[Rfam]
RNA sequence: CCUUAGCCCUGAUAGAAGUGGAAAUCCUUUUGUGAAGCUUUAGCGGAACAAAAGAUUGAAACGGAUAGCAGGAAUAGCU
Number, nucleotide and partner (000 for none) at each position: 001c000002c000003u000004u000005a000006g000007c000008c000009c071010u070011g069012a000013u067014a066015g000016a000017a000018g062019u061020g000021g000022a000023a057024a056025u055026c054027c000028u000029u052030u051031u050032g049033u048034g000035a000036a000037g000038c000039u000040u000041u000042a000043g000044c000045g000046g000047a000048a033049c032050a031051a030052a029053a000054g026055a025056u024057u023058g000059a000060a000061a019062c018063g000064g000065a000066u014067a013068g000069c011070a010071g009072g000073a000074a000075u000076a000077g000078c000079u000
Flavo-1 RNA: a 79-nucleotide RNA from Flavobacterium johnsoniae. The family's consensus secondary structure is taken from published work. NCBI's taxonomy places the organism under Bacteria, Pseudomonadati, Flavobacteriia, Flavobacteriales, Flavobacterium johnsoniae. The sequence is in the family's curated seed alignment.